[Rfam]
RNA sequence: GGGUUUCGGCCGCAUUCUGCGGUCGGGAGGUUCAGUGCAUUGGUCGGGCCGCCAAUG
Numbered sequence: 001g002g003g004u005u006u007c008g009g010c011c012g013c014a015u016u017c018u019g020c021g022g023u024c025g026g027g028a029g030g031u032u033c034a035g036u037g038c039a040u041u042g043g044u045c046g047g048g049c050c051g052c053c054a055a056u057g
Stems, first nucleotide, its partner, number of pairs: 005027008038057007